[Rfam]
RNA: Small nucleolar RNA SNORA14
RNA sequence: CUGCAUUCUUAACCCUCCUGACAGCUCUCUUAUUAGCUUUCAGGAUAAGACUGAAUGCCAGAGAAAACUGUGGAUUCAUCCAAAAUGCAGAGCUCCUCUCCUGUGGCUCUCCAUUAUUUCACAUCUUCAACACUU
Numbered sequence: 001c002u003g004c005a006u007u008c009u010u011a012a013c014c015c016u017c018c019u020g021a022c023a024g025c026u027c028u029c030u031u032a033u034u035a036g037c038u039u040u041c042a043g044g045a046u047a048a049g050a051c052u053g054a055a056u057g058c059c060a061g062a063g064a065a066a067a068c069u070g071u072g073g074a075u076u077c078a079u080c081c082a083a084a085a086u087g088c089a090g091a092g093c094u095c096c097u098c099u100c101c102u103g104u105g106g107c108u109c110u111c112c113a114u115u116a117u118u119u120c121a122c123a124u125c126u127u128c129a130a131c132a133c134u135u
Stems, first nucleotide, its partner, number of pairs: 003058004009049002016045006023038003063135002069129002072126003084115004089110002092107002098103001